[Rfam]
RNA: Small nucleolar RNA Z112
RNA sequence: GUCUUGUUGAAGAGCUCUAGACCAUAGGAAGUGCCGUAUGACACUGUAAACAGCAGCUGUUUCUCUGCUGCUGUAAGUGUCCAUCCUCAUAUCAUAACCUUUGUGGUUUUGUCUGGGAUGGAAUUACCCAUUUGCACCGGCUUGAUUCAGCUGUGUGCUUGAUUUUAAACGGGUCUCUGAGGGAU
Numbered sequence: 001g002u003c004u005u006g007u008u009g010a011a012g013a014g015c016u017c018u019a020g021a022c023c024a025u026a027g028g029a030a031g032u033g034c035c036g037u038a039u040g041a042c043a044c045u046g047u048a049a050a051c052a053g054c055a056g057c058u059g060u061u062u063c064u065c066u067g068c069u070g071c072u073g074u075a076a077g078u079g080u081c082c083a084u085c086c087u088c089a090u091a092u093c094a095u096a097a098c099c100u101u102u103g104u105g106g107u108u109u110u111g112u113c114u115g116g117g118a119u120g121g122a123a124u125u126a127c128c129c130a131u132u133u134g135c136a137c138c139g140g141c142u143u144g145a146u147u148c149a150g151c152u153g154u155g156u157g158c159u160u161g162a163u164u165u166u167a168a169a170c171g172g173g174u175c176u177c178u179g180a181g182g183g184a185u
Stems, first nucleotide, its partner, number of pairs: 001185005070137001072136008080122007091112002094109001096108004